[Rfam]
RNA sequence: GUUCUCUUAGUUCAACUGGUUAAAACGGCAUUCUUCUAAAGUGCGAAUUUUGGUUCGAGUCCAAAAGAGAAUU
Dot-bracket structure: (((((((..(((...........))).(((((.......)))))....(((((.......)))))))))))).
A member of the RNA family "tRNA" from Leucoagaricus sp. SymC.cos, 73 nucleotides long. The base pairs follow the family's consensus structure, which is taken from published work. The match comes from Rfam's covariance-model search (52 bits).